Shown here is a 135-nucleotide RNA sequence from Sinocyclocheilus anshuiensis, a member of the family "Small nucleolar RNA SNORA13".
It is annotated as an H/ACA-box small nucleolar RNA.
Gene Ontology terms of the family: RNA processing and nucleolus.
From the family's description: ACA13 is a member of the H/ACA class of snoRNA that guide the sites of modification of uridines to pseudouridines.
NCBI's taxonomy places the organism under Eukaryota, Bilateria, Deuterostomia, Actinopteri, Sinocyclocheilus.
Nucleotides: 135
Stems, first nucleotide, its partner, number of pairs: 003058005011051002014048004018043008071128004075123001077122003090113001093110001096106002
Number, partner (000 for none) and nucleotide at each position: 001000a002000u003058c004057c005056u006055u007054c008000a009000u010000g011051u012050g013000u014048u015047g016046c017045c018043c019042g020041u021040u022039c023038a024037u025036u026000u027000c028000c029000u030000u031000u032000u033000c034000a035000a036025a037024g038023u039022g040021a041020a042019c043018g044000u045017g046016g047015u048014g049000u050012c051011a052000g053000a054007g055006a056005a057004g058003g059000c060000g061000c062000a063000c064000a065000u066000u067000a068000a069000c070000u071128c072127u073126u074125g075123u076000u077122g078121u079120g080000a081000u082000c083000u084000u085000a086000a087000a088000u089000g090113g091000a092000a093110u094000u095000u096106g097105g098000a099000g100000u101000a102000c103000u104000u105097c106096c107000a108000u109000u110093a111000a112000a113090u114000a115000a116000g117000c118000u119000c120079u121078g122077c123075a124000a125074u126073a127072a128071g129000a130000a131000c132000a133000u134000a135000a